Record summary
Bradyrhizobiaceae sRNA BjrC68: an 81-nucleotide sequence from Tardiphaga sp. vice352. The pairing is the family consensus, mapped onto this sequence. The family's RNA type in Rfam is small RNA. The literature on the family includes a 2012 paper in RNA Biol by Madhugiri et al., "Small RNAs of the Bradyrhizobium/Rhodopseudomonas lineage and their analysis". The organism belongs to Tardiphaga, within Bacteria.
[Rfam]
RNA sequence: UCCCGAGAUCGGUUGCGGCAAUACCCGGCAAUGCCACAACCGCCGAAGGGCUCCAGCGCAAGCUGGGGCCCUUCACCUUUU
Numbered sequence: 001u002c003c004c005g006a007g008a009u010c011g012g013u014u015g016c017g018g019c020a021a022u023a024c025c026c027g028g029c030a031a032u033g034c035c036a037c038a039a040c041c042g043c044c045g046a047a048g049g050g051c052u053c054c055a056g057c058g059c060a061a062g063c064u065g066g067g068g069c070c071c072u073u074c075a076c077c078u079u080u081u
Stems, first nucleotide, its partner, number of pairs: 010042006017035002047072008056063002